[Rfam]
RNA: skipping-rope RNA
RNA sequence: UAAGUUGGAGGAUAGAAAGGCAGCUAUCACGCCUAUAAAUAUAAAAUGUUCCUCGCUCGGCUAGUAAUAGCAACGCAAGAAGGUCAUUUAUAGGUCUUGAAAGAGAUGCAGGGUACGCCGACCUGCCCAACUAA
Numbered sequence: 001u002a003a004g005u006u007g008g009a010g011g012a013u014a015g016a017a018a019g020g021c022a023g024c025u026a027u028c029a030c031g032c033c034u035a036u037a038a039a040u041a042u043a044a045a046a047u048g049u050u051c052c053u054c055g056c057u058c059g060g061c062u063a064g065u066a067a068u069a070g071c072a073a074c075g076c077a078a079g080a081a082g083g084u085c086a087u088u089u090a091u092a093g094g095u096c097u098u099g100a101a102a103g104a105g106a107u108g109c110a111g112g113g114u115a116c117g118c119c120g121a122c123c124u125g126c127c128c129a130a131c132u133a134a
Stems, first nucleotide, its partner, number of pairs: 001134001003132006011028005019119003030103001031095010108126005